[Rfam]
Nucleotides: 112
Stems, first nucleotide, its partner, number of pairs: 008105006020035004037092003040088002044086003050079005
Number, partner (000 for none) and nucleotide at each position: 001000a002000g003000a004000c005000a006000c007000a008105u009104c010103c011102c012101u013100g014000g015000a016000g017000a018000g019000a020035u021034u022033c023032a024000u025000u026000u027000a028000a029000c030000u031000a032023u033022g034021a035020a036000c037092a038091u039090c040088g041087a042000c043000g044086g045085a046084g047000a048000a049000a050079c051078u052077u053076a054075a055000g056000g057000u058000g059000u060000a061000a062000g063000u064000g065000g066000u067000a068000u069000u070000a071000c072000a073000u074000a075054u076053u077052a078051a079050g080000g081000a082000a083000a084046c085045u086044u087041u088040c089000a090039g091038a092037u093000a094000a095000a096000a097000g098000g099000a100013c101012a102011g103010g104009g105008a106000a107000u108000a109000g110000a111000u112000a
The record is a 112-nucleotide sequence from Clostridium collagenovorans, which matches "Glycine riboswitch aptamer" in Rfam.
NCBI's taxonomy places the organism under Bacteria, Bacillati, Eubacteriales, Clostridiaceae, Clostridium collagenovorans.
It scores 56 bits against the family's covariance model.
This family represents the bacterial glycine riboswitch.